[Rfam]
RNA sequence: UAAGACAAAGCCAAACCAUUCGUAAGGAUGGGACGGAAAGCUACGGUUCUCUCAGGGGCAAAAGCCACAGAUCAAUGUAGCGAGAGAUGGCCGGGUUGCCUUGG
Numbered sequence: 001u002a003a004g005a006c007a008a009a010g011c012c013a014a015a016c017c018a019u020u021c022g023u024a025a026g027g028a029u030g031g032g033a034c035g036g037a038a039a040g041c042u043a044c045g046g047u048u049c050u051c052u053c054a055g056g057g058g059c060a061a062a063a064g065c066c067a068c069a070g071a072u073c074a075a076u077g078u079a080g081c082g083a084g085a086g087a088u089g090g091c092c093g094g095g096u097u098g099c100c101u102u103g104g
Stems, first nucleotide, its partner, number of pairs: 001104001003101002011036002016031006034090001039097004044093003048087006
Rfam assigns this 104-nucleotide RNA sequence from Olavius algarvensis associated proteobacterium Delta 3 to the family "c-di-GMP-I-GGC riboswitch aptamer". A reference for the family is Weinberg et al. (2017), "Bioinformatic analysis of riboswitch structures uncovers variant classes with altered ligand specificity", Proc Natl Acad Sci U S A.